[Rfam]
RNA: Plastid-psbA-3 3UTR RNA
Organism: Gossypium armourianum
RNA sequence: AAAGGAGCAAUACCAACACUCUUGCUAGAACAAGAAAGUGGUUAUUGCUCC
Numbered sequence: 001a002a003a004g005g006a007g008c009a010a011u012a013c014c015a016a017c018a019c020u021c022u023u024g025c026u027a028g029a030a031c032a033a034g035a036a037a038g039u040g041g042u043u044a045u046u047g048c049u050c051c
Stems, first nucleotide, its partner, number of pairs: 004051009013041002020035005